[Rfam]
RNA: DUF805 RNA
RNA sequence: UUAUGCCGGAGCCGAAACCACUAAAAACGGGGCGGAACCCGAAAAGCCUUACGAGUAGGAAUAUU
Numbered sequence: 001u002u003a004u005g006c007c008g009g010a011g012c013c014g015a016a017a018c019c020a021c022u023a024a025a026a027a028c029g030g031g032g033c034g035g036a037a038c039c040c041g042a043a044a045a046g047c048c049u050u051a052c053g054a055g056u057a058g059g060a061a062u063a064u065u
Stems, first nucleotide, its partner, number of pairs: 008019002031048003038059002